[Rfam]
RNA sequence: GCCCUCCCCUCUCACACCCCCGGGAGCGGUGACCGGGGGGCGGUCGGGGAGGGCACA
Numbered sequence: 001g002c003c004c005u006c007c008c009c010u011c012u013c014a015c016a017c018c019c020c021c022g023g024g025a026g027c028g029g030u031g032a033c034c035g036g037g038g039g040g041c042g043g044u045c046g047g048g049g050a051g052g053g054c055a056c057a
Stems, first nucleotide, its partner, number of pairs: 001054009017039007